[Rfam]
RNA sequence: AUAAAACAGGCAGGGAGCUUAAAUUCUUGCCUUUUCUUCGCGGUCAAGUCUUGGGAGGAUCGAUCCUGGCGCGCUUGUUCGCAGCCCCGGAAACGGAACGGAUCACGCGAUACUUGAAAAACAAGGCCCGAGGCCUUGUUUUUUUUU
Numbered sequence: 001a002u003a004a005a006a007c008a009g010g011c012a013g014g015g016a017g018c019u020u021a022a023a024u025u026c027u028u029g030c031c032u033u034u035u036c037u038u039c040g041c042g043g044u045c046a047a048g049u050c051u052u053g054g055g056a057g058g059a060u061c062g063a064u065c066c067u068g069g070c071g072c073g074c075u076u077g078u079u080c081g082c083a084g085c086c087c088c089g090g091a092a093a094c095g096g097a098a099c100g101g102a103u104c105a106c107g108c109g110a111u112a113c114u115u116g117a118a119a120a121a122c123a124a125g126g127c128c129c130g131a132g133g134c135c136u137u138g139u140u141u142u143u144u145u146u147u
Stems, first nucleotide, its partner, number of pairs: 003147004011029006039109004048060004062104005068086003071082003087096003120140008
Dot-bracket structure: ..((((....((((((.......)))))).........((((.....((((.....)))).(((((.((((((......))).)))(((....)))...))))).))))..........((((((((.....))))))))...))))
About this RNA
A member of the RNA family "Alphaproteobacterial sRNA ar9" from Martelella sp. AD-3, 147 nucleotides long. The base pairs follow the family's consensus structure. NCBI's taxonomy places the organism under Bacteria, Pseudomonadati, Pseudomonadota, Hyphomicrobiales, Martelella. On this family, see del Val et al., RNA Biol 2012: "A survey of sRNA families in alpha-proteobacteria". The match comes from Rfam's covariance-model search (120 bits). The family's RNA type in Rfam is small RNA.